[Rfam]
Background:
Shown here is a 67-nucleotide sequence from Musa balbisiana, a member of the family "Plastid-clpP 5UTR RNA". On this family, see Richter et al., Plant Commun 2023: "Retrograde signaling in plants: A critical review focusing on the GUN pathway and beyond". NCBI's taxonomy places the organism under Eukaryota, Spermatophyta, Liliopsida, commelinids, Musa. About the family: Plastid clpP is a non-coding RNA (ncRNA) recognised in plastids. The family has 343 seed sequences and 2,105 matches in Rfam 15.1. The base pairs follow the family's consensus structure, which was predicted with LocARNA. The family's RNA type in Rfam is cis-regulatory element.

RNA sequence: AUUUCUGUUCGUAAGACAAAGAGAAGCAUAGUCUAUUCUAAACCGAUAAGUACCAAUACGCAAUGGG
Number, nucleotide and partner (000 for none) at each position: 001a000002u000003u021004u020005c000006u018007g017008u016009u000010c015011g000012u000013a000014a000015g010016a008017c007018a006019a000020a004021g003022a000023g000024a000025a000026g000027c000028a000029u000030a000031g000032u000033c000034u000035a000036u000037u000038c000039u000040a000041a000042a000043c066044c065045g000046a000047u000048a000049a000050g059051u058052a057053c000054c000055a000056a000057u052058a051059c050060g000061c000062a000063a000064u000065g044066g043067g000